[Rfam]
A member of the RNA family "Fluoride riboswitch aptamer (crcB RNA motif)" from Rhodopila globiformis, 60 nucleotides long. Pairs were carried over by alignment from the consensus structure, which is taken from published work.
RNA sequence: CGAAGGCACAGGGAAGGGGUCCCCUAAAACUGCCUCCGGGCUGAUGACUCCUGCGGCGUA
Numbered sequence: 001c002g003a004a005g006g007c008a009c010a011g012g013g014a015a016g017g018g019g020u021c022c023c024c025u026a027a028a029a030c031u032g033c034c035u036c037c038g039g040g041c042u043g044a045u046g047a048c049u050c051c052u053g054c055g056g057c058g059u060a
Base pairs, nucleotide, nucleotide: 010025011024012023013022016051017050018049019048020047021046032041033040034039